[Rfam]
RNA: FMN riboswitch aptamer (RFN element)
RNA sequence: AAGUGCGCUCCGGGGUCGGUGAAAUUCCGAACCGGCGGUGAAAGCCCGCGACCCGUCUGCCACGGCAGGCGGUUGAACCGGUGGAACUCCGGUGCCGACGGUGACAGUCCGGAUGGGAGGACGCGUAC
Dot-bracket structure: ..(((((.((......(((.......))).[[((((((.....[[))))...((................))....(((((.......)))))]])).(((.....]]))).......)).)))))..